[Rfam]
RNA: Group II catalytic intron D1-D4-6
Organism: Candidatus Gallionella acididurans
RNA sequence: GAAGUCCCAUACAAGGAAGGAGUAGCGAACCGUCUUGACCCCGAGUCAUGCGUUGCGCAUCGCGAGGUGUGUAGCGAAGCGUUGACAGGGGACACCGGCAGGCCAGCCAUUGAGCCGCGAAAUCAAUAGAAACAGGAUGCCGACGUUGUUCCGCUUAACGGAAGGCAAUACUCAGCAGGGCGCAAUCGCGAGUCCUGCUGUGAUCCUGCGCGGUCGGAGACAC
Numbered sequence: 001g002a003a004g005u006c007c008c009a010u011a012c013a014a015g016g017a018a019g020g021a022g023u024a025g026c027g028a029a030c031c032g033u034c035u036u037g038a039c040c041c042c043g044a045g046u047c048a049u050g051c052g053u054u055g056c057g058c059a060u061c062g063c064g065a066g067g068u069g070u071g072u073a074g075c076g077a078a079g080c081g082u083u084g085a086c087a088g089g090g091g092a093c094a095c096c097g098g099c100a101g102g103c104c105a106g107c108c109a110u111u112g113a114g115c116c117g118c119g120a121a122a123u124c125a126a127u128a129g130a131a132a133c134a135g136g137a138u139g140c141c142g143a144c145g146u147u148g149u150u151c152c153g154c155u156u157a158a159c160g161g162a163a164g165g166c167a168a169u170a171c172u173c174a175g176c177a178g179g180g181c182g183c184a185a186u187c188g189c190g191a192g193u194c195c196u197g198c199u200g201u202g203a204u205c206c207u208g209c210g211c212g213g214u215c216g217g218a219g220a221c222a223c
Base pairs, nucleotide, nucleotide: 012037013036014035015034016033019031020030023191025189026188039091040090041089042088045086046085047084048083049081050080051076052075053074054073055072056071057070058069059068060067061066111217112215114214115213116212117211118210119209133208134207135206136205137204138203139166140165141164144160145159146158147157171202173200174199175198176197177196178195179194180193181192